[Rfam]
The family of this 289-nucleotide RNA sequence from Sylvia atricapilla is "Small Cajal body-specific RNA 7". For this family Rfam cites "Cajal body-specific small nuclear RNAs: a novel class of 2'-O-methylation and pseudouridylation guide RNAs" (Darzacq et al., EMBO J, 2002). The pairing is the family consensus, mapped onto this sequence. The family has 18 seed sequences and 570 matches in Rfam 15.1.

RNA sequence: GGGAAGUGAUGACAAGGAGAUAAUUGGGUGCGUUUGGCUGGAGUGUGAGUGAGAAGGGGCAUGAAUCCCCAGCUGGGGUGGGGGCUGUGUGUGUGGGGAUGUGAGGGGGGCUCUCCUGGGGGCUCUGAUGGCAGUGCUGAGCCAGGAGUGCAUCUGAGGCGUGUUGGGCACCUCGGGGGCCCCUCUGCAACACUGCCAGUGAUUAAAGCCCCAAGAAAAGCUCCCCAGGAGAGCCCCAGGCUGCCCAAACGUCUCCCAGGGUCACCAGUGAUCCUGUGCUCUGAUCUCA
Numbered sequence: 001g002g003g004a005a006g007u008g009a010u011g012a013c014a015a016g017g018a019g020a021u022a023a024u025u026g027g028g029u030g031c032g033u034u035u036g037g038c039u040g041g042a043g044u045g046u047g048a049g050u051g052a053g054a055a056g057g058g059g060c061a062u063g064a065a066u067c068c069c070c071a072g073c074u075g076g077g078g079u080g081g082g083g084g085c086u087g088u089g090u091g092u093g094u095g096g097g098g099a100u101g102u103g104a105g106g107g108g109g110g111c112u113c114u115c116c117u118g119g120g121g122g123c124u125c126u127g128a129u130g131g132c133a134g135u136g137c138u139g140a141g142c143c144a145g146g147a148g149u150g151c152a153u154c155u156g157a158g159g160c161g162u163g164u165u166g167g168g169c170a171c172c173u174c175g176g177g178g179g180c181c182c183c184u185c186u187g188c189a190a191c192a193c194u195g196c197c198a199g200u201g202a203u204u205a206a207a208g209c210c211c212c213a214a215g216a217a218a219a220g221c222u223c224c225c226c227a228g229g230a231g232a233g234c235c236c237c238a239g240g241c242u243g244c245c246c247a248a249a250c251g252u253c254u255c256c257c258a259g260g261g262u263c264a265c266c267a268g269u270g271a272u273c274c275u276g277u278g279c280u281c282u283g284a285u286c287u288c289a
Base pairs, nucleotide, nucleotide: 001288002287003286004285162192163191164190165189166188167182168181171178172177